[Rfam]
RNA sequence: GCUCUGUGAUGAAUCCCAUGCGUGUCAUCUGAGCCUGAAAUCCCUGAGGUCUCUGCCCGGGUAGUGUUCUACUUCCUAGGGUUAGUGUCUAACCUUGCAAGGGGUCUUCAGGCAGAGGAUCAGUCUUUGUAUUCUGAGAGC
Dot-bracket structure: ((((.....................................(((((((((.........................................))))..))..))).................................))))
The family of this 141-nucleotide RNA sequence from Sorex araneus is "Small nucleolar RNA SNORD10".
NCBI's taxonomy places the organism under Eukaryota, Vertebrata, Tetrapoda, Theria, Sorex.
The family's RNA type in Rfam is C/D-box small nucleolar RNA.
Gene Ontology terms of the family: RNA processing and nucleolus.
A reference for the family is Huttenhofer et al. (2001), "RNomics: an experimental approach that identifies 201 candidates for novel, small, non-messenger RNAs in mouse", EMBO J.